The family of this 387-nucleotide RNA from Parapedobacter indicus is "Bacterial RNase P class A". The source organism's lineage runs through Bacteria, Pseudomonadati, Sphingobacteriia, Sphingobacteriales and Parapedobacter. Gene Ontology terms of the family: ribonuclease P activity, tRNA processing and dimeric ribonuclease P complex.
RNA sequence: AAGCAGGCCCGUUCUAUCGCCGCGGCAGCAGCCGGGGAGGAAAGUCCGGACAACACAGAGCACCUCGCUUCCUAACGGGAAGGGCCCCGAUGCAGAUUGGGGUACGGAAAGUGCCACAGAAAACAAACCGCUUCGAUUCGUUGGAGCAAGGGUGAAAACGUGGGGUAAGAGCCCACGGCUUUGUAUGGCAACAUACAUCGCGGUAAACCCCGGGGGUUGAAAGGCCAAAUAGGUUGCGGAUUACUGGAGCUGCUCGCUUCUAAUUUGCCGGUAGGCAAACACCGCAACGGGUAGGCCGAUGGAGCCUGCUAGUGAUGGCAGGCCUAGAUAAAUGAUAGAAGCCCCGCUUGCGGGGAACAGAAUCCGGCUUAUAGGGUUUGCUUUUUU
Dot-bracket structure: ((((((((((((((((((.((.((((....)))).))....[[[.[[[[[((((....[.[.((((((((((.....)))))(((((((((....)))))))).)((...(((((............(((((((((....)))))))..)).......((((((.......))))))....((((((....))))))....)))..)))))))))))))...((((......((((((.........................(((((.].]..)))))...)))))).....))))......((((((((....))))))))..........)))))))......................]]]]]]]].).))))))))))....